[Rfam]
RNA sequence: AGUGACAUUUUUUAGGUGAGGCUCCUAUAAAGACACAGGCUGCUGCCCAGAAAAAUCUAGAGAUUCCAAUGGGUGAACAGAAAUGAUCCACAAGGUUAUUUUUAAUGUAGCUGACAAAUCGUCUACGCUUUAUAGUGCUAAAACGUUGUGAAGUCCGUAUUU
Numbered sequence: 001a002g003u004g005a006c007a008u009u010u011u012u013u014a015g016g017u018g019a020g021g022c023u024c025c026u027a028u029a030a031a032g033a034c035a036c037a038g039g040c041u042g043c044u045g046c047c048c049a050g051a052a053a054a055a056u057c058u059a060g061a062g063a064u065u066c067c068a069a070u071g072g073g074u075g076a077a078c079a080g081a082a083a084u085g086a087u088c089c090a091c092a093a094g095g096u097u098a099u100u101u102u103u104a105a106u107g108u109a110g111c112u113g114a115c116a117a118a119u120c121g122u123c124u125a126c127g128c129u130u131u132a133u134a135g136u137g138c139u140a141a142a143a144c145g146u147u148g149u150g151a152a153g154u155c156c157g158u159a160u161u162u
Stems, first nucleotide, its partner, number of pairs: 005158002010153001012148001013093001016144002020139003025135008039111005045074005054065004080102004086096003113123003
The record is a 162-nucleotide sequence from Holtiella tumoricola, which matches "M-box riboswitch aptamer (ykoK leader)" in Rfam.
From the family's description: M-box riboswitch, also know as ykoK leader is described as a metaloregulatory RNA that sense divalent metals and function as a genetic control element of genes related to divalent metal transport in bacteria.
Rfam links the family to the GO terms regulation of gene expression and response to magnesium ion.